The record is a 144-nucleotide sequence from Handroanthus impetiginosus, which matches "Small nucleolar RNA snoR2/U65" in Rfam.
It scores 122 bits against the family's covariance model.
Taxonomically the source falls in Handroanthus (Eukaryota, Tracheophyta, asterids, Crescentiina).
Gene Ontology terms of the family: RNA processing and nucleolus.
[Rfam]
RNA sequence: GGUUCAAUGCCACGUCGCCGGUAGCAUAGGCGAUGACCGGCGGUGUCAUGAUUGAACCUAAAUCAAACUUCUUUCGCAUGUUGAUAGGAACCUGUGGACUGAUUAUUCCGUUCAUCCACGGAGCCGGUUUCUGUGAUUACAUUU
Numbered sequence: 001g002g003u004u005c006a007a008u009g010c011c012a013c014g015u016c017g018c019c020g021g022u023a024g025c026a027u028a029g030g031c032g033a034u035g036a037c038c039g040g041c042g043g044u045g046u047c048a049u050g051a052u053u054g055a056a057c058c059u060a061a062a063u064c065a066a067a068c069u070u071c072u073u074u075c076g077c078a079u080g081u082u083g084a085u086a087g088g089a090a091c092c093u094g095u096g097g098a099c100u101g102a103u104u105a106u107u108c109c110g111u112u113c114a115u116c117c118a119c120g121g122a123g124c125c126g127g128u129u130u131c132u133g134u135g136a137u138u139a140c141a142u143u144u
Stems, first nucleotide, its partner, number of pairs: 002057007009049001013045006020038003024031002074136005087125002092121003096117003100114002